A member of the RNA family "ZMP/ZTP riboswitch aptamer (pfl RNA motif)" from Streptomyces griseicoloratus, 102 nucleotides long.
RNA sequence: CUCACGGGCCGUGACUGGCGCGCUGGGAUGGGACCAACCAUCGGGAAGCGGCCCCCGGACCCGUCGGGUCCGGCACAUGUGCCGUGCGCCUGGGCCUUGGGC
Number, nucleotide and partner (000 for none) at each position: 001c000002u000003c057004a000005c000006g054007g053008g052009c051010c050011g049012u048013g000014a000015c045016u044017g090018g089019c088020g087021c086022g000023c000024u000025g000026g000027g000028a041029u040030g039031g038032g000033a000034c000035c000036a000037a000038c031039c030040a029041u028042c000043g000044g016045g015046a000047a000048g012049c011050g010051g009052c008053c007054c006055c000056c000057g003058g000059a000060c000061c000062c000063g000064u000065c000066g000067g000068g000069u000070c000071c000072g000073g000074c000075a000076c000077a000078u000079g097080u000081g095082c094083c093084g000085u000086g021087c020088g019089c018090c017091u000092g000093g083094g082095c081096c000097u079098u000099g000100g000101g000102c000

Taxonomically the source falls in Streptomyces (Bacteria, Actinomycetes, Kitasatosporales, Streptomycetaceae).